Streptococcus sRNA SpF59 (ldcC RNA): a 52-nucleotide sequence. By type it is a small RNA. The base pairs follow the family's consensus structure, which was predicted with mfold.
[Rfam]
RNA sequence: UGACCGCCUAGAUAUAGGCUAAGGCUACACGGACGGCCGGGCCAAAUGCCGA
Numbered sequence: 001u002g003a004c005c006g007c008c009u010a011g012a013u014a015u016a017g018g019c020u021a022a023g024g025c026u027a028c029a030c031g032g033a034c035g036g037c038c039g040g041g042c043c044a045a046a047u048g049c050c051g052a
Stems, first nucleotide, its partner, number of pairs: 001044002004041002006019005